[Rfam]
The record is a 186-nucleotide sequence from Natronobacterium lacisalsi, which matches "Sense overlapping transcript RNA 2652 (sot)" in Rfam. The family's RNA type in Rfam is small RNA. The source organism's lineage runs through Archaea, Methanobacteriota, Halobacteriales, Natrialbaceae and Natronobacterium lacisalsi.
RNA sequence: AUUACCGGACUCACAAAACCCAGCCGCAAGUGCGGUUGGUGCGUCUGUCCGGGUCGGGGCGUGUAAACCGCCCAACCUCAUCCCGCUCGCUUGCCGAGCAGGGAGUACUAGCGUACGGCUGAGGGAAUUACAAAAGCCUCGGGCCACCGCGCCCGAGGUUGUUUACGGGUCCCGGGGUUCGGUUCG
Number, nucleotide and partner (000 for none) at each position: 001a000002u000003u000004a000005c052006c051007g050008g049009a048010c047011u000012c000013a044014c043015a000016a000017a000018a000019c000020c039021c038022a037023g036024c035025c034026g000027c000028a000029a000030g000031u000032g000033c000034g025035g024036u023037u022038g021039g020040u000041g000042c000043g014044u013045c000046u000047g010048u009049c008050c007051g006052g005053g076054u075055c000056g000057g073058g072059g071060c070061g069062u067063g000064u000065a000066a000067a062068c000069c061070g060071c059072c058073c057074a000075a054076c053077c000078u000079c000080a000081u000082c000083c000084c186085g185086c000087u182088c181089g180090c000091u000092u177093g000094c175095c174096g172097a000098g170099c169100a000101g000102g000103g000104a000105g166106u165107a164108c000109u121110a120111g119112c118113g000114u000115a000116c000117g000118g112119c111120u110121g109122a000123g000124g000125g000126a000127a000128u000129u000130a000131c000132a000133a000134a000135a160136g159137c158138c157139u156140c155141g154142g153143g152144c151145c000146a000147c000148c000149g000150c000151g144152c143153c142154c141155g140156a139157g138158g137159u136160u135161g000162u000163u000164u107165a106166c105167g000168g000169g099170u098171c000172c096173c000174g095175g094176g000177g092178u000179u000180c089181g088182g087183u000184u000185c085186g084
Rfam describes the family as follows. It is associated with IS1341-type transposase (tnpB) genes, at the 3'-end in H. salinarum NRC-1. Rfam 15.1 lists 37 matches to the family in 25 species. The family's consensus secondary structure was predicted with RNAfold.